[Rfam]
RNA sequence: CCUUGGGCAGUGCCUCCAGGACUGUCCGACCUGAGAAUGCCAGGCUCCAGGCUCAAUCUCAGGUCCGUCAGCCCGAGAGGUGCUGCCCUACC
Numbered sequence: 001c002c003u004u005g006g007g008c009a010g011u012g013c014c015u016c017c018a019g020g021a022c023u024g025u026c027c028g029a030c031c032u033g034a035g036a037a038u039g040c041c042a043g044g045c046u047c048c049a050g051g052c053u054c055a056a057u058c059u060c061a062g063g064u065c066c067g068u069c070a071g072c073c074c075g076a077g078a079g080g081u082g083c084u085g086c087c088c089u090a091c092c
Base pairs, nucleotide, nucleotide: 005089006088007087008085009084010083011082012081013080014079015078016077019074020073022071023070024069026067028065029064030063031062032061033060034059035058036057038055039054
RNA: mir-1388 microRNA precursor family
Organism: Loxodonta africana